[Rfam]
RNA sequence: UGUAAUAGAACCUCUGCUAAAAGCUGUCACGUCCUGUGGCAAACGCAGAGGUCAGCACAUCCUGUGCA
Numbered sequence: 001u002g003u004a005a006u007a008g009a010a011c012c013u014c015u016g017c018u019a020a021a022a023g024c025u026g027u028c029a030c031g032u033c034c035u036g037u038g039g040c041a042a043a044c045g046c047a048g049a050g051g052u053c054a055g056c057a058c059a060u061c062c063u064g065u066g067c068a
Stems, first nucleotide, its partner, number of pairs: 011051007026040005055067004

Overview: Rfam assigns this 68-nucleotide sequence from Bacillus mesophilus to the family "Bacillaceae-1 RNA". NCBI's taxonomy places the organism under Bacteria, Bacillota, Bacilli, Caryophanales, Bacillus. The match comes from Rfam's covariance-model search (64 bits). Pairs were carried over by alignment from the consensus structure, which is taken from published work.